[Rfam]
RNA sequence: CAUCGGGAUAGAGGUGCGGUCCAUGAUCAGUAGGUACUCUUAGCCGGCCGGGCAGAGAGGGGUACUGAAAGGAAUGACCGCCGAAGCGGUAAUUUGCGGCGGAAUUAUCGCUGGGCAUGUCUUGAAGAAAUUCAUGCCUGUCAUCCGGCAGGAUGGAGAGCUAUCUGCAAA
Numbered sequence: 001c002a003u004c005g006g007g008a009u010a011g012a013g014g015u016g017c018g019g020u021c022c023a024u025g026a027u028c029a030g031u032a033g034g035u036a037c038u039c040u041u042a043g044c045c046g047g048c049c050g051g052g053c054a055g056a057g058a059g060g061g062g063u064a065c066u067g068a069a070a071g072g073a074a075u076g077a078c079c080g081c082c083g084a085a086g087c088g089g090u091a092a093u094u095u096g097c098g099g100c101g102g103a104a105u106u107a108u109c110g111c112u113g114g115g116c117a118u119g120u121c122u123u124g125a126a127g128a129a130a131u132u133c134a135u136g137c138c139u140g141u142c143a144u145c146c147g148g149c150a151g152g153a154u155g156g157a158g159a160g161c162u163a164u165c166u167g168c169a170a171a
Stems, first nucleotide, its partner, number of pairs: 006166006016081006024073001033066008085112011113139007122130002141156006
RNA: Lysine riboswitch aptamer